MIR7486 microRNA precursor family: an 87-nucleotide sequence from Gossypium hirsutum.
RNA sequence: UUCAAGGAAGCGCUUUGUCCACGUGGACAGAAUACGCGUCCUUGAGGGCGCGCUUUGUGUCCACAUGGACAAAGCGCUUCCUUGAGG
Numbered sequence: 001u002u003c004a005a006g007g008a009a010g011c012g013c014u015u016u017g018u019c020c021a022c023g024u025g026g027a028c029a030g031a032a033u034a035c036g037c038g039u040c041c042u043u044g045a046g047g048g049c050g051c052g053c054u055u056u057g058u059g060u061c062c063a064c065a066u067g068g069a070c071a072a073a074g075c076g077c078u079u080c081c082u083u084g085a086g087g
Stems, first nucleotide, its partner, number of pairs: 001086021023064007031056002035052004040047002

The source organism's lineage runs through Eukaryota, rosids, malvids, Malvaceae and Gossypium.